[Rfam]
RNA: Twister_sister_ribozyme
Nucleotides: 083
Stems, first nucleotide, its partner, number of pairs: 004078004013068003018030003033049004050065006
Number, partner (000 for none) and nucleotide at each position: 001000a002000a003000a004078a005077c006076c007075c008000g009000c010000a011000a012000g013068g014067c015066c016000g017000a018030c019029g020028g021000c022000a023000c024000c025000c026000c027000g028020c029019c030018g031000c032000c033049g034048c035047u036046g037000g038000u039000g040000c041000a042000a043000g044000u045000c046036c047035a048034g049033c050065c051064g052063c053062c054061c055060c056000c057000g058000c059000c060055g061054g062053g063052g064051c065050g066015g067014g068013c069000g070000c071000u072000c073000a074000u075007g076006g077005g078004u079000a080000a081000a082000c083000c